[Rfam]
RNA sequence: UGGCGGUGGGGAUUCCAGGCAGUGUGAUUUUGGAGUUAAAUGGCAGAAUCACAUUGCCAGGGAUUUCCAAUCGCUG
Numbered sequence: 001u002g003g004c005g006g007u008g009g010g011g012a013u014u015c016c017a018g019g020c021a022g023u024g025u026g027a028u029u030u031u032g033g034a035g036u037u038a039a040a041u042g043g044c045a046g047a048a049u050c051a052c053a054u055u056g057c058c059a060g061g062g063a064u065u066u067c068c069a070a071u072c073g074c075u076g
Stems, first nucleotide, its partner, number of pairs: 001076002004073003010068002012064005018058013
RNA: mir-23 microRNA precursor family
Organism: Polypterus senegalus